[Rfam]
RNA sequence: CAUCCAUCGAGACCGGCGGAGGGACAGGCCCUUUGAUGCCGGGGCAACCUCCACCCAGCGCGCAGGCGCCGGGUGGAAGGUGCCAAGUCCUGCGGGGACCUGAGCGUCCACCGGAAGAUGGUUG
Numbered sequence: 001c002a003u004c005c006a007u008c009g010a011g012a013c014c015g016g017c018g019g020a021g022g023g024a025c026a027g028g029c030c031c032u033u034u035g036a037u038g039c040c041g042g043g044g045c046a047a048c049c050u051c052c053a054c055c056c057a058g059c060g061c062g063c064a065g066g067c068g069c070c071g072g073g074u075g076g077a078a079g080g081u082g083c084c085a086a087g088u089c090c091u092g093c094g095g096g097g098a099c100c101u102g103a104g105c106g107u108c109c110a111c112c113g114g115a116a117g118a119u120g121g122u123u124g
Base pairs, nucleotide, nucleotide: 001124002123004121005120006119007118008117013042014041015040016039017038021031022030023029025092026091027090028089043084044083045082046081048080049079050077051076052075053074054073055072056071088116093113094112095111097109
Rfam assigns this 124-nucleotide sequence from Luteimonas salinisoli to the family "SAM riboswitch aptamer (S box leader)". NCBI's taxonomy places the organism under Bacteria, Gammaproteobacteria, Lysobacterales, Lysobacteraceae, Luteimonas. A search with the family's covariance model found it, with a score of 78 bits.